Description:
The family of this 305-nucleotide RNA sequence from Acyrthosiphon pisum is "RNase MRP". It is annotated as a ribozyme. Gene Ontology terms of the family: ribonuclease MRP complex, rRNA processing and ribonuclease MRP activity. Pairs were carried over by alignment from the consensus structure, which is taken from published work.
RNA sequence: CUCACCUCCGAUACCUUACCAUCGGGUCUACACUCUUGGCGCGGUAACCGAGCGGUUACCGAUUGUCCACAUCACGACCUGAGGAAAGUCCCCGGACCUCCGGCAGAGAGUGCAACCGGCUCAACGGCCGUUCGAUUCCGCCCCGCUCGUCCGAACACAUGACGGAUGUGAACGGUGCACGUUUCGGCGUGUCCGCGAUCCGUAGGCCGGCCGUGGGCGAUUUCGACUGGUCCUAGAUAUACAGUAUGUAAAGGGAGGGUUGUGCAAGCGACCCUUGACUUAAUGGGGCUUAUCAACGGAGGUGA
Numbered sequence: 001c002u003c004a005c006c007u008c009c010g011a012u013a014c015c016u017u018a019c020c021a022u023c024g025g026g027u028c029u030a031c032a033c034u035c036u037u038g039g040c041g042c043g044g045u046a047a048c049c050g051a052g053c054g055g056u057u058a059c060c061g062a063u064u065g066u067c068c069a070c071a072u073c074a075c076g077a078c079c080u081g082a083g084g085a086a087a088g089u090c091c092c093c094g095g096a097c098c099u100c101c102g103g104c105a106g107a108g109a110g111u112g113c114a115a116c117c118g119g120c121u122c123a124a125c126g127g128c129c130g131u132u133c134g135a136u137u138c139c140g141c142c143c144c145g146c147u148c149g150u151c152c153g154a155a156c157a158c159a160u161g162a163c164g165g166a167u168g169u170g171a172a173c174g175g176u177g178c179a180c181g182u183u184u185c186g187g188c189g190u191g192u193c194c195g196c197g198a199u200c201c202g203u204a205g206g207c208c209g210g211c212c213g214u215g216g217g218c219g220a221u222u223u224c225g226a227c228u229g230g231u232c233c234u235a236g237a238u239a240u241a242c243a244g245u246a247u248g249u250a251a252a253g254g255g256a257g258g259g260u261u262g263u264g265c266a267a268g269c270g271a272c273c274c275u276u277g278a279c280u281u282a283a284u285g286g287g288g289c290u291u292a293u294c295a296a297c298g299g300a301g302g303u304g305a
Stems, first nucleotide, its partner, number of pairs: 002305009014253001016251004022082007044059006086291003090288004103113003115132001117130004134222003140218002143216004151210003163202004185195003255275001257273002260270001